[Rfam]
RNA sequence: CUCUUAUCAAGAGAGGUGGAGGGAAAAGGGCCCUAUGAAACCCGGCAACCUGUGGAAGACACAAAGGUGCCAAUUCCUGUAGUUUAUACUACGAGAUAAGAG
Numbered sequence: 001c002u003c004u005u006a007u008c009a010a011g012a013g014a015g016g017u018g019g020a021g022g023g024a025a026a027a028g029g030g031c032c033c034u035a036u037g038a039a040a041c042c043c044g045g046c047a048a049c050c051u052g053u054g055g056a057a058g059a060c061a062c063a064a065a066g067g068u069g070c071c072a073a074u075u076c077c078u079g080u081a082g083u084u085u086a087u088a089c090u091a092c093g094a095g096a097u098a099a100g101a102g
Stems, first nucleotide, its partner, number of pairs: 001102008013043001015042003021033003028078003044071004049067002051063004075094001080091004
Shown here is a 102-nucleotide sequence from Clostridium bornimense, a member of the family "SAM riboswitch aptamer (S box leader)". Lineage of the source: Bacteria > Bacillati > Bacillota > Eubacteriales > Clostridium. Pairs were carried over by alignment from the consensus structure, which is taken from published work.